[Rfam]
Nucleotides: 103
Base pairs, nucleotide, nucleotide: 003031004030005029006028007027008026009025010024011023012022034068035067036066037065039062040061041060083100084099085098086097087096088095089094
Number, partner (000 for none) and nucleotide at each position: 001000g002000g003031u004030u005029u006028a007027a008026u009025u010024a011023c012022c013000c014000a015000a016000g017000u018000u019000u020000g021000a022012g023011g024010u025009a026008a027007u028006u029005g030004a031003a032000u033000g034068u035067u036066u037065c038000a039062g040061c041060c042000c043000a044000g045000a046000a047000u048000u049000a050000u051000a052000u053000c054000u055000g056000c057000u058000g059000u060041g061040g062039c063000u064000u065037g066036a067035a068034a069000u070000g071000a072000a073000a074000u075000u076000u077000u078000g079000g080000a081000a082000a083100g084099u085098c086097c087096u088095a089094c090000a091000u092000u093000a094089g095088u096087g097086g098085g099084a100083c101000a102000a103000c
Shown here is a 103-nucleotide RNA sequence, a member of the family "SL1 RNA". The base pairs follow the family's consensus structure, which is taken from published work. Its family is annotated with mRNA trans splicing, via spliceosome in the Gene Ontology. By type it is a non-coding RNA gene. A reference for the family is Dassanayake et al. (2001), "Trans-spliced leader RNA, 5S-rRNA genes and novel variant orphan spliced-leader of the lymphatic filarial nematode Wuchereria bancrofti, and a sensitive polymerase chain reaction based detection assay", Gene. Rfam's curators write: This family represents the SL1 RNA. SL1 is commonly located in the spacer region between 5S-rRNA genes where it is involved in trans-splicing. Trans-splicing is a form of RNA processing. The sequence is in the family's curated seed alignment.